[Rfam]
RNA sequence: GCAGGUGAAUGCAACGUUGAGCGAUGGGCGUUGCGCUCCAUAAUUGUUUUAUUUUAGAAUUAUGCACAUAGCAGAUUUGAUUCAAUAAUGCCGGUUUAAUCACCGGCAUUU
Numbered sequence: 001g002c003a004g005g006u007g008a009a010u011g012c013a014a015c016g017u018u019g020a021g022c023g024a025u026g027g028g029c030g031u032u033g034c035g036c037u038c039c040a041u042a043a044u045u046g047u048u049u050u051a052u053u054u055u056a057g058a059a060u061u062a063u064g065c066a067c068a069u070a071g072c073a074g075a076u077u078u079g080a081u082u083c084a085a086u087a088a089u090g091c092c093g094g095u096u097u098a099a100u101c102a103c104c105g106g107c108a109u110u111u
Stems, first nucleotide, its partner, number of pairs: 001047004007038002010035009057083006063073003090107006
Source information:
A member of the RNA family "Fumarate/nitrate reductase regulator sRNA" from Serratia sp. DD3, 111 nucleotides long. The base pairs follow the family's consensus structure, which is taken from published work. It scores 86 bits against the family's covariance model. The literature on the family includes a 2010 paper in Mol Microbiol by Durand and Storz, "Reprogramming of anaerobic metabolism by the FnrS small RNA".